[Rfam]
RNA sequence: AGCUUUCUGCAUCCGUGCUCAGAUUUCGUCAUACACCAACCCAGUUGCGCUGAUCAGACUCCCAACAUAAGUGAAGCU
Numbered sequence: 001a002g003c004u005u006u007c008u009g010c011a012u013c014c015g016u017g018c019u020c021a022g023a024u025u026u027c028g029u030c031a032u033a034c035a036c037c038a039a040c041c042c043a044g045u046u047g048c049g050c051u052g053a054u055c056a057g058a059c060u061c062c063c064a065a066c067a068u069a070a071g072u073g074a075a076g077c078u
Stems, first nucleotide, its partner, number of pairs: 002077005008071001011068002016064002021060002024058003028054003
RNA: mir-3492 microRNA precursor family